This 207-nucleotide RNA sequence belongs to the Rfam family "Group II catalytic intron D1-D4-5". From the family's description: Group II introns are found in rRNA, tRNA and mRNA of organelles in fungi, plants and protists, and also in mRNA in bacteria. The sequence is in the family's curated seed alignment. A reference for the family is Bonen and Vogel (2001), "The ins and outs of group II introns", Trends Genet. The pairing is the family consensus, mapped onto this sequence.

RNA sequence: UCUAACUGAUACUCCGAGGAGUGGAAUGAAGGGGUAACGCCCUGAAACGCUCCCCCUGAUACUGCGUUGGAGGAAACGGGGCGCAAUCCCUGCGACUGACACAGCACGCUGAAGUCGGCUGGACACACCCGCCUUACACGAGGUAAAAGACGGUAGGGCAAAGACGAGCCAGAGGUGGCCGUGGGUGAUAGGCCGGGGGUUCAUAAC
Numbered sequence: 001u002c003u004a005a006c007u008g009a010u011a012c013u014c015c016g017a018g019g020a021g022u023g024g025a026a027u028g029a030a031g032g033g034g035u036a037a038c039g040c041c042c043u044g045a046a047a048c049g050c051u052c053c054c055c056c057u058g059a060u061a062c063u064g065c066g067u068u069g070g071a072g073g074a075a076a077c078g079g080g081g082c083g084c085a086a087u088c089c090c091u092g093c094g095a096c097u098g099a100c101a102c103a104g105c106a107c108g109c110u111g112a113a114g115u116c117g118g119c120u121g122g123a124c125a126c127a128c129c130c131g132c133c134u135u136a137c138a139c140g141a142g143g144u145a146a147a148a149g150a151c152g153g154u155a156g157g158g159c160a161a162a163g164a165c166g167a168g169c170c171a172g173a174g175g176u177g178g179c180c181g182u183g184g185g186u187g188a189u190a191g192g193c194c195g196g197g198g199g200u201u202c203a204u205a206a207c
Stems, first nucleotide, its partner, number of pairs: 018053006031043004054199004064109004068101002116195005126187005131159003138154002163182001165181002168179004